[Rfam]
The family of this 355-nucleotide sequence from Asticcacaulis excentricus is "Alphaproteobacteria transfer-messenger RNA". NCBI's taxonomy places the organism under Bacteria, Pseudomonadota, Alphaproteobacteria, Caulobacterales, Asticcacaulis excentricus. The family's RNA type in Rfam is non-coding RNA gene.

RNA sequence: CCUCUUUCGCCGCGCGGCCGAAACGCCUAUAUUGAAAUUGUUCCUCCGGGGACUAUGGGGAUAAACGCCCACGUAAUAAGCGGACUGGACCCGGGUGCGAUUCCCGGCGGCUCCACCAUUUCCCUCCGUUUACGGAGUUUACAUGGGGCCGAUCAGCAUCGACAGACGUGUAAAGGUGUAGCCUUCCCUCAGUUUGAGCCUCUGUGAUCGGCUCAAAAUUAUAGUUGCGAACGAUAACUUCGCUUCGGAUCAAGCUCUUGCUGCGUAAUGCGGCGGAUCUAAUCCACCUAAACUCCUAGGGUUUAAGCUCCCUAGGCGGGGCCCGCUGGACGCCUGGCAACAGAAGUCCAGCACU
Numbered sequence: 001c002c003u004c005u006u007u008c009g010c011c012g013c014g015c016g017g018c019c020g021a022a023a024c025g026c027c028u029a030u031a032u033u034g035a036a037a038u039u040g041u042u043c044c045u046c047c048g049g050g051g052a053c054u055a056u057g058g059g060g061a062u063a064a065a066c067g068c069c070c071a072c073g074u075a076a077u078a079a080g081c082g083g084a085c086u087g088g089a090c091c092c093g094g095g096u097g098c099g100a101u102u103c104c105c106g107g108c109g110g111c112u113c114c115a116c117c118a119u120u121u122c123c124c125u126c127c128g129u130u131u132a133c134g135g136a137g138u139u140u141a142c143a144u145g146g147g148g149c150c151g152a153u154c155a156g157c158a159u160c161g162a163c164a165g166a167c168g169u170g171u172a173a174a175g176g177u178g179u180a181g182c183c184u185u186c187c188c189u190c191a192g193u194u195u196g197a198g199c200c201u202c203u204g205u206g207a208u209c210g211g212c213u214c215a216a217a218a219u220u221a222u223a224g225u226u227g228c229g230a231a232c233g234a235u236a237a238c239u240u241c242g243c244u245u246c247g248g249a250u251c252a253a254g255c256u257c258u259u260g261c262u263g264c265g266u267a268a269u270g271c272g273g274c275g276g277a278u279c280u281a282a283u284c285c286a287c288c289u290a291a292a293c294u295c296c297u298a299g300g301g302u303u304u305a306a307g308c309u310c311c312c313u314a315g316g317c318g319g320g321g322c323c324c325g326c327u328g329g330a331c332g333c334c335u336g337g338c339a340a341c342a343g344a345a346g347u348c349c350a351g352c353a354c355u
Stems, first nucleotide, its partner, number of pairs: 040053005057189005067182002070178003081168002085165003091107005108151007190204003195215006319335004325352006